mir-1343 microRNA precursor family: a 76-nucleotide RNA from Saimiri boliviensis. Rfam 15.1 lists 238 matches to the family in 131 species. Rfam links the family to the GO terms miRNA-mediated post-transcriptional gene silencing and RISC complex. The match comes from Rfam's covariance-model search (65 bits). NCBI's taxonomy places the organism under Eukaryota, Opisthokonta, Vertebrata, Tetrapoda, Saimiri boliviensis.
[Rfam]
RNA sequence: CUGGUGUCAGUGCUGGGGAGCGGCCCCUGGGCAGGCCUCUGCCCCUCCUGGGGCUCACACUCUCGCUCCGGGCCCG
Numbered sequence: 001c002u003g004g005u006g007u008c009a010g011u012g013c014u015g016g017g018g019a020g021c022g023g024c025c026c027c028u029g030g031g032c033a034g035g036c037c038u039c040u041g042c043c044c045c046u047c048c049u050g051g052g053g054c055u056c057a058c059a060c061u062c063u064c065g066c067u068c069c070g071g072g073c074c075c076g
Stems, first nucleotide, its partner, number of pairs: 003074003007071002010068001012066002015063004020058001022056002025053007034043003
Dot-bracket structure: ..(((.((.(.((.((((.(.((.(((((((..(((....)))...))))))).)).).)))).)).).)))))..